RNA sequence: AACAAUUGAAUGGGGAGCUGGCGCAUGCCGGCUGAGAAAGGGCGUAAUGCCGCCCUGACCCAGGAACCUGAUCCGGAUAAUGCCGGCGUAGGAACCCCUCAGAAGGACCCUUCC
Dot-bracket structure: .....((((.((((.((((((......))))).......((((........)))))..))))....((((..((((......))))..))))......))))............
Numbered sequence: 001a002a003c004a005a006u007u008g009a010a011u012g013g014g015g016a017g018c019u020g021g022c023g024c025a026u027g028c029c030g031g032c033u034g035a036g037a038a039a040g041g042g043c044g045u046a047a048u049g050c051c052g053c054c055c056u057g058a059c060c061c062a063g064g065a066a067c068c069u070g071a072u073c074c075g076g077a078u079a080a081u082g083c084c085g086g087c088g089u090a091g092g093a094a095c096c097c098c099u100c101a102g103a104a105g106g107a108c109c110c111u112u113c114c
Stems, first nucleotide, its partner, number of pairs: 006102004011062004016056001017032005040055004067092004073086004
This 114-nucleotide RNA from Firmicutes bacterium CAG:114 belongs to the Rfam family "TPP riboswitch aptamer (THI element)". The source organism's lineage runs through Bacteria, Bacillati and Bacillota.